RNA sequence: UUUAGCUCUGAUUGUCCAAACGCAAUUCUUGUGAUUUUUAUACUUCAAGAACUGUGCAUGGACAUCGUGGCUCGA
Numbered sequence: 001u002u003u004a005g006c007u008c009u010g011a012u013u014g015u016c017c018a019a020a021c022g023c024a025a026u027u028c029u030u031g032u033g034a035u036u037u038u039u040a041u042a043c044u045u046c047a048a049g050a051a052c053u054g055u056g057c058a059u060g061g062a063c064a065u066c067g068u069g070g071c072u073c074g075a
Stems, first nucleotide, its partner, number of pairs: 002074001004072004009067004014063005021056004026051006
About this RNA: A member of the RNA family "mir-219 microRNA precursor family" from Pseudolycoriella hygida, 75 nucleotides long. Its family is annotated with miRNA-mediated post-transcriptional gene silencing and RISC complex in the Gene Ontology. Pairs were carried over by alignment from the consensus structure, which was predicted with RNAalifold. The literature on the family includes a 2003 paper in Science by Lim et al., "Vertebrate microRNA genes".